[Rfam]
RNA sequence: UCUCCCGCUUCACCUCCCUGAGCGGGUGCCUUAAUCCAGUUAAGGCGUUUGACCCCGGGCUUUAUCCCCUUUAGCCCGGGGUUUUUUAU
Numbered sequence: 001u002c003u004c005c006c007g008c009u010u011c012a013c014c015u016c017c018c019u020g021a022g023c024g025g026g027u028g029c030c031u032u033a034a035u036c037c038a039g040u041u042a043a044g045g046c047g048u049u050u051g052a053c054c055c056c057g058g059g060c061u062u063u064a065u066c067c068c069c070u071u072u073a074g075c076c077c078g079g080g081g082u083u084u085u086u087u088a089u
Stems, first nucleotide, its partner, number of pairs: 004026006028046007053081008
Dot-bracket structure: ...((((((...........)))))).(((((((.....)))))))......((((((((.............))))))))........

Record summary: Burkholderia RNA 7 (anti-hemB): an 89-nucleotide RNA sequence from Aromatoleum aromaticum. The family's consensus secondary structure is taken from published work. The sequence is in the family's curated seed alignment. About the family: This RNA motif was identified by computational search in b-proteobacteria Burkholderia. Co-purified with Hfq, expression confirmed by Northern blot. Rfam 15.1 lists 479 matches to the family in 458 species. For this family Rfam cites "Identification of small RNAs abundant in Burkholderia cenocepacia biofilms reveal putative regulators with a potential role in carbon and iron metabolism" (Sass et al., Sci Rep, 2017). Lineage of the source: Bacteria > Betaproteobacteria > Rhodocyclales > Aromatoleum > Aromatoleum aromaticum.